[Rfam]
RNA sequence: CGAUGAGGUAGAGGUCGCGGAGAUCAAGAGUACGCACGGGGAGACGCAGCAGCCGUCAGUGAGCCGUCCGGAAAGGGAAAUCCGCCGAAGUCCGUCUGUCGCUGGUGAACAGACGGGCUGGGGCCGUUGCCGAAAGGGACGGAACUGUCACGCUUCAAGGAGAAUCUGCCGGGCAUCGCCCGGUUCUGGUUGUCCCUGCGGCGUGUUGCGCUAUCUUCACG
Number, nucleotide and partner (000 for none) at each position: 001c000002g000003a000004u000005g000006a216007g215008g214009u213010a212011g211012a000013g000014g000015u000016c000017g085018c084019g083020g082021a081022g000023a000024u078025c077026a000027a000028g000029a000030g000031u000032a000033c070034g069035c000036a067037c066038g065039g064040g000041g000042a000043g000044a000045c000046g000047c000048a000049g000050c000051a000052g000053c000054c000055g000056u000057c000058a000059g000060u000061g000062a000063g000064c039065c038066g037067u036068c000069c034070g033071g000072a000073a000074a000075g000076g000077g025078a024079a000080a000081u021082c020083c019084g018085c017086c000087g000088a000089a119090g118091u117092c116093c115094g114095u113096c112097u111098g110099u109100c000101g000102c000103u000104g000105g000106u000107g000108a000109a099110c098111a097112g096113a095114c094115g093116g092117g091118c090119u089120g146121g145122g000123g000124c142125c141126g140127u139128u138129g000130c136131c000132g000133a000134a000135a000136g130137g000138g128139a127140c126141g125142g124143a000144a000145c121146u120147g000148u000149c205150a204151c203152g202153c201154u200155u000156c000157a000158a000159g000160g000161a000162g000163a000164a000165u000166c000167u000168g000169c000170c000171g000172g000173g000174c000175a000176u000177c000178g000179c000180c000181c000182g000183g000184u000185u000186c000187u000188g000189g000190u000191u000192g000193u000194c000195c000196c000197u000198g000199c000200g154201g153202c152203g151204u150205g149206u000207u000208g000209c000210g000211c011212u010213a009214u008215c007216u006217u000218c000219a000220c000221g000
Rfam assigns this 221-nucleotide RNA sequence from Paenibacillus spiritus to the family "Lysine riboswitch aptamer". From the family's description: Riboswitches are metabolite binding domains within certain messenger RNAs that serve as precision sensors for their corresponding targets. Taxonomically the source falls in Paenibacillus (Bacteria, Bacillati, Bacilli, Caryophanales). For this family Rfam cites "An mRNA structure in bacteria that controls gene expression by binding lysine" (Sudarsan et al., Genes Dev, 2003).